Shown here is a 68-nucleotide RNA sequence from Budvicia aquatica, a member of the family "MicA sRNA". The match comes from Rfam's covariance-model search (43 bits). Rfam links the family to the GO term mRNA binding. Rfam classes the family as a small RNA.
[Rfam]
RNA sequence: GAACAACACUCGUUAUUAUCAUCCCUCGUACAGAGAUGUUUAUAAGGCCACUAGAUAUGUGGCCUUUC
Numbered sequence: 001g002a003a004c005a006a007c008a009c010u011c012g013u014u015a016u017u018a019u020c021a022u023c024c025c026u027c028g029u030a031c032a033g034a035g036a037u038g039u040u041u042a043u044a045a046g047g048c049c050a051c052u053a054g055a056u057a058u059g060u061g062g063c064c065u066u067u068c
Stems, first nucleotide, its partner, number of pairs: 020038004025033002046064006